Source information
A member of the RNA family "c-di-AMP riboswitch aptamer (ydaO/yuaA leader)" from Corynebacterium appendicis, 167 nucleotides long. The base pairs follow the family's consensus structure. From the family's description: This family represents a conserved RNA structure found upstream of the ydaO and yuaA genes in Bacillus subtilis and related genes in other bacteria. The ydaO/yuaA element is thought to act as a genetic 'off' switch for the ydaO and yuaA genes in its native state. It is believed that the element may be triggered during osmotic shock leading to activation of ydaO, a predicted amino acid transporter gene, and members of the yuaA-yubG operon which code for KtrA and KtrB K+ transporters.
[Rfam]
RNA sequence: CAAGUACAUAGGACAAAAGCGGGGGACCCACCCAGCACAGCGUGAAACGCGCGAGUGCACCGCGGAGCGAGCUCCGCUUGGGGUGAAGCCGCCGUCUGGGCGGCCAGGUGAUUCAAACCUCAGCCUGAACCCGACAGCUCACCUCGCAGACGUAGAACAAGAGAGGA
Numbered sequence: 001c002a003a004g005u006a007c008a009u010a011g012g013a014c015a016a017a018a019g020c021g022g023g024g025g026a027c028c029c030a031c032c033c034a035g036c037a038c039a040g041c042g043u044g045a046a047a048c049g050c051g052c053g054a055g056u057g058c059a060c061c062g063c064g065g066a067g068c069g070a071g072c073u074c075c076g077c078u079u080g081g082g083g084u085g086a087a088g089c090c091g092c093c094g095u096c097u098g099g100g101c102g103g104c105c106a107g108g109u110g111a112u113u114c115a116a117a118c119c120u121c122a123g124c125c126u127g128a129a130c131c132c133g134a135c136a137g138c139u140c141a142c143c144u145c146g147c148a149g150a151c152g153u154a155g156a157a158c159a160a161g162a163g164a165g166g167a
Base pairs, nucleotide, nucleotide: 005017019147020146021145022144023143024142029080030079081132082131083130089103090102091101092100106126107125108124109123